RNA sequence: CUACUUACCCGGCAGGGGAGUGACCAUGAUCACAAAGGUGGUUUUCUCAGGGCGAGUCUUCUCCAUUGGACUCUGGAUGUGCUGAUCCCUGCAAUUUCCCCAAAGGUGGGAAACUCGACUGCAUAAUUUGUGGUAAUGGGGAACUGCAUUUGCGCUCUCCCCUG
Numbered sequence: 001c002u003a004c005u006u007a008c009c010c011g012g013c014a015g016g017g018g019a020g021u022g023a024c025c026a027u028g029a030u031c032a033c034a035a036a037g038g039u040g041g042u043u044u045u046c047u048c049a050g051g052g053c054g055a056g057u058c059u060u061c062u063c064c065a066u067u068g069g070a071c072u073c074u075g076g077a078u079g080u081g082c083u084g085a086u087c088c089c090u091g092c093a094a095u096u097u098c099c100c101c102a103a104a105g106g107u108g109g110g111a112a113a114c115u116c117g118a119c120u121g122c123a124u125a126a127u128u129u130g131u132g133g134u135a136a137u138g139g140g141g142a143a144c145u146g147c148a149u150u151u152g153c154g155c156u157c158u159c160c161c162c163u164g
Base pairs, nucleotide, nucleotide: 012122013121014120015119016048017047018046019045020044023042024041025040026039027038049090050089051088052087054086056083058081060079062077063076064075092117094115095113096112097111099109100108138162139161140160141159143158146155147154
Dot-bracket structure: ...........(((((((((..(((((..........))))).)))))((((.(.(.(.(.(((..........))).).).)..))))).(.((((.((.......)).))).).).))))...............((((.(..((......))..)))))..

A member of the RNA family "U1 spliceosomal RNA" from Pan paniscus, 164 nucleotides long. Rfam's curators write: U1 is a small nuclear RNA (snRNA) component of the spliceosome (involved in pre-mRNA splicing). Its 5' end forms complementary base pairs with the 5' splice junction, thus defining the 5' donor site of an intron. There are significant differences in sequence and secondary structure between metazoan and yeast U1 snRNAs, the latter being much longer (568 nucleotides as compared to 164 nucleotides in human). The literature on the family includes a 1997 paper in Nucleic Acids Res by Zwieb, "The uRNA database". Rfam links the family to the GO terms U1 snRNP, mRNA 5'-splice site recognition and pre-mRNA 5'-splice site binding. By type it is a spliceosomal small nuclear RNA. Its Rfam clan is "U1 clan". The match comes from Rfam's covariance-model search (129 bits).